RNA sequence: AUCACCUGGGGAUCUUGUUAAAAUGCAGAUUUUGAUUCAGAAGGUCUGGGGUGGGGUCUGAGGUUCUGCAUUUCAAACAAUCUCCCAGGUAUGCUAA
Numbered sequence: 001a002u003c004a005c006c007u008g009g010g011g012a013u014c015u016u017g018u019u020a021a022a023a024u025g026c027a028g029a030u031u032u033u034g035a036u037u038c039a040g041a042a043g044g045u046c047u048g049g050g051g052u053g054g055g056g057u058c059u060g061a062g063g064u065u066c067u068g069c070a071u072u073u074c075a076a077a078c079a080a081u082c083u084c085c086c087a088g089g090u091a092u093g094c095u096a097a
Stems, first nucleotide, its partner, number of pairs: 004090002009085003015080005021073003025069005031063003
RNA: mir-544 microRNA precursor family